[Rfam]
RNA sequence: GCACAGGCGUGGUUGAGUGGUUACUUCGGAAACACAGAUAUUCUCAUCGACCUCUAACGCUGUCCUGUGUUUUU
Numbered sequence: 001g002c003a004c005a006g007g008c009g010u011g012g013u014u015g016a017g018u019g020g021u022u023a024c025u026u027c028g029g030a031a032a033c034a035c036a037g038a039u040a041u042u043c044u045c046a047u048c049g050a051c052c053u054c055u056a057a058c059g060c061u062g063u064c065c066u067g068u069g070u071u072u073u074u
Base pairs, nucleotide, nucleotide: 002069003068004067005066006065007064012058013057014056015055017054019052020051026050027049028048029047

Record summary: The family of this 74-nucleotide sequence from Trichonephila inaurata is "Vault RNA". It scores 40 bits against the family's covariance model. The family's consensus secondary structure is taken from published work. Rfam classes the family as a non-coding RNA gene. The family has 73 seed sequences and 2,873 matches in Rfam 15.1.